[Rfam]
RNA sequence: UUCGAAAAAGGCAAACCUGUCGAAAGGCGGGGACGCAAAGCUGCGGGUCUAAGGAAUUAGUGGCCGGUCCACUACUCUAUGACAGUCGGGCUGCCGAAG
Numbered sequence: 001u002u003c004g005a006a007a008a009a010g011g012c013a014a015a016c017c018u019g020u021c022g023a024a025a026g027g028c029g030g031g032g033a034c035g036c037a038a039a040g041c042u043g044c045g046g047g048u049c050u051a052a053g054g055a056a057u058u059a060g061u062g063g064c065c066g067g068u069c070c071a072c073u074a075c076u077c078u079a080u081g082a083c084a085g086u087c088g089g090g091c092u093g094c095c096g097a098a099g
Stems, first nucleotide, its partner, number of pairs: 001099001003096002011036002016031006034085001039092004044088003047083003
c-di-GMP-I-GGC riboswitch aptamer: a 99-nucleotide RNA sequence from Thermincola carboxydiphila. Its Rfam clan is "c-di-GMP_I riboswitch clan". The family has 40 seed sequences and 1,298 matches in Rfam 15.1. A search with the family's covariance model found it, with a score of 71 bits. The organism belongs to Thermincola carboxydiphila, within Bacteria.